[Rfam]
Source information
MIR2118 microRNA precursor family: a 174-nucleotide RNA from Triticum aestivum. The family has 7 seed sequences and 2,377 matches in Rfam 15.1. The match comes from Rfam's covariance-model search (95 bits).

Nucleotides: 174
Base pairs, nucleotide, nucleotide: 009165010164011163012162013161016158017157021155026150028148029147030146031145032144033143037139038138039137040136041135042134043133044132045131046130047129049126050125051124053122055121056120057119058118059117
Number, partner (000 for none) and nucleotide at each position: 001000g002000c003000c004000g005000a006000g007000a008000a009165g010164a011163g012162g013161a014000a015000u016158a017157a018000a019000g020000a021155g022000a023000u024000a025000a026150c027000u028148c029147g030146a031145g032144a033143g034000c035000a036000c037139u038138a039137g040136g041135a042134a043133u044132g045131g046130g047129a048000a049126c050125a051124u052000a053122g054000a055121g056120g057119a058118a059117a060000c061000c062000c063000c064000u065000g066000c067000u068000u069000g070000u071000u072000u073000g074000u075000u076000u077000g078000c079000a080000c081000u082000u083000c084000u085000a086000g087000u088000g089000u090000u091000u092000g093000a094000g095000g096000u097000g098000c099000a100000a101000a102000u103000a104000u105000u106000u107000u108000c109000a110000c111000a112000g113000u114000u115000c116000a117059u118058u119057u120056c121055c122053u123000c124051a125050u126049g127000c128000c129047u130046c131045c132044c133043a134042u135041u136040c137039c138038u139037a140000c141000c142000a143033u144032u145031c146030u147029u148028g149000u150026g151000c152000a153000c154000c155021c156000c157017u158016u159000c160000c161013u162012c163011u164010u165009c166000c167000u168000u169000u170000u171000g172000g173000c174000u